This 146-nucleotide RNA from Trifolium medium belongs to the Rfam family "U4 spliceosomal RNA". About the family: U4 small nuclear RNA (U4 snRNA) is a component of the major U2-dependent spliceosome. It is annotated as a spliceosomal small nuclear RNA. Lineage of the source: Eukaryota > Euphyllophyta > Pentapetalae > Papilionoideae > Trifolium.
RNA sequence: AUCUUUGCGCUUGGGGCAAUGACGCAGCUUAUGAGAUAAUAAUCGAAGCGUGUCUAUUGCUAGUUGAAAACUAUUUCCAAACCCCCUCUAAGCCUGAUGUAAUCCUUAGGUCUUUGAGAAUUUCUGGAUGGCACCCUUUUUUGGGU
Numbered sequence: 001a002u003c004u005u006u007g008c009g010c011u012u013g014g015g016g017c018a019a020u021g022a023c024g025c026a027g028c029u030u031a032u033g034a035g036a037u038a039a040u041a042a043u044c045g046a047a048g049c050g051u052g053u054c055u056a057u058u059g060c061u062a063g064u065u066g067a068a069a070a071c072u073a074u075u076u077c078c079a080a081a082c083c084c085c086c087u088c089u090a091a092g093c094c095u096g097a098u099g100u101a102a103u104c105c106u107u108a109g110g111u112c113u114u115u116g117a118g119a120a121u122u123u124c125u126g127g128a129u130g131g132c133a134c135c136c137u138u139u140u141u142u143g144g145g146u
Stems, first nucleotide, its partner, number of pairs: 021054005027049003035044003086118003090114003093110005099104001133146004